The family of this 84-nucleotide RNA sequence from Cytobacillus depressus is "c-di-GMP-I riboswitch aptamer". The match comes from Rfam's covariance-model search (74 bits). The family's consensus secondary structure is taken from published work.
[Rfam]
Nucleotides: 084
Base pairs, nucleotide, nucleotide: 012037013036017032018031019030020029021028022027040078042076043075047074048073049070050069051068056064057063
Number, partner (000 for none) and nucleotide at each position: 001000g002000u003000a004000c005000g006000a007000a008000a009000a010000g011000g012037g013036c014000a015000a016000a017032a018031u019030c020029a021028u022027c023000g024000a025000a026000a027022g028021g029020u030019g031018a032017u033000g034000a035000c036013g037012c038000a039000a040078a041000g042076c043075u044000a045000c046000a047074g048073g049070g050069g051068c052000u053000a054000a055000a056064g057063u058000g059000u060000a061000a062000a063057a064056c065000c066000a067000u068051g069050c070049c071000a072000g073048c074047c075043a076042g077000a078040u079000u080000c081000c082000g083000a084000a
NCBI's taxonomy places the organism under Bacteria, Bacillota, Caryophanales, Bacillaceae, Cytobacillus.